[Rfam]
RNA sequence: GUCAUCAAGUGAUGAAACUGAAAGUUAUAAUCUUAGGACACCUUCCUACACAGCGUAAGCCAAUGCUGUGAAUGAGAAAAACAUUUCUAUUCUGAUGAUGGC
Numbered sequence: 001g002u003c004a005u006c007a008a009g010u011g012a013u014g015a016a017a018c019u020g021a022a023a024g025u026u027a028u029a030a031u032c033u034u035a036g037g038a039c040a041c042c043u044u045c046c047u048a049c050a051c052a053g054c055g056u057a058a059g060c061c062a063a064u065g066c067u068g069u070g071a072a073u074g075a076g077a078a079a080a081a082c083a084u085u086u087c088u089a090u091u092c093u094g095a096u097g098a099u100g101g102c
Base pairs, nucleotide, nucleotide: 001102002101003100004099005098006097007096
RNA: Small nucleolar RNA snoR31/Z110/Z27
Organism: Papaver somniferum